Shown here is a 50-nucleotide RNA sequence, a member of the family "chrB-b RNA".
Rfam's curators put it in the seed alignment.
[Rfam]
RNA sequence: CGGGGACUUGCAGACUCCCCGCCAGACGGGCGUUGCCGUCCAAGCUCUGC
Numbered sequence: 001c002g003g004g005g006a007c008u009u010g011c012a013g014a015c016u017c018c019c020c021g022c023c024a025g026a027c028g029g030g031c032g033u034u035g036c037c038g039u040c041c042a043a044g045c046u047c048u049g050c
Base pairs, nucleotide, nucleotide: 001021002020003019004018005017006016010050011049012048013047014046025040026039027038028037029036
Dot-bracket structure: ((((((...[[[[[.))))))...(((((......))))).....]]]]]